Rfam assigns this 257-nucleotide RNA sequence from Marinilactibacillus sp. 15R to the family "T-box leader".
By type it is a cis-regulatory leader.

RNA sequence: AUAGUAGCGAUAACUGAAACAACAUGAAGCAAAAUACUUUUCAGAGAGCCAGCGGAGGUGUGAAGCUGGUAAGUGCUUUUUGCAUAAAUGAUCAUUCAGUGGCUCUUUAGUGAAUUAUGUAGUAGCUAAAGACGUAACUCUGCGUUAAAGAGAAGAGAAAAACAAAAGUAAAUGUAUAAUAUUGUGGAAUAUAAACAGUAUUAUUAUCACUUAAUGUUUUUGAAGUAAGGUGGUACCACGAAGAUUUCGUCCUUUUA
Dot-bracket structure: ......((......((((.....(((.((.......(((........((((((...........)))))))))......)).))).........))))...)).(((((((.............))))))).(((......))).............(((((((..................................................))))))).....((((.......(((((...)))))))))...